[Rfam]
RNA sequence: UAUACGAAAUGGCAAAGCCAUUGAAAAAUGGUGGCGCAAAGCUAUAGGGACUAACGUUGUUUUACAACUAUGUCAGCCAGUUUCCGAA
Numbered sequence: 001u002a003u004a005c006g007a008a009a010u011g012g013c014a015a016a017g018c019c020a021u022u023g024a025a026a027a028a029u030g031g032u033g034g035c036g037c038a039a040a041g042c043u044a045u046a047g048g049g050a051c052u053a054a055c056g057u058u059g060u061u062u063u064a065c066a067a068c069u070a071u072g073u074c075a076g077c078c079a080g081u082u083u084c085c086g087a088a
Stems, first nucleotide, its partner, number of pairs: 012037002017032006040082004047078002049074003056068004
Notes:
A member of the RNA family "c-di-GMP-I riboswitch aptamer" from Schinkia azotoformans, 88 nucleotides long. On this family, see Weinberg et al., Nucleic Acids Res 2007: "Identification of 22 candidate structured RNAs in bacteria using the CMfinder comparative genomics pipeline". Lineage of the source: Bacteria > Bacillati > Bacillota > Bacilli > Schinkia azotoformans.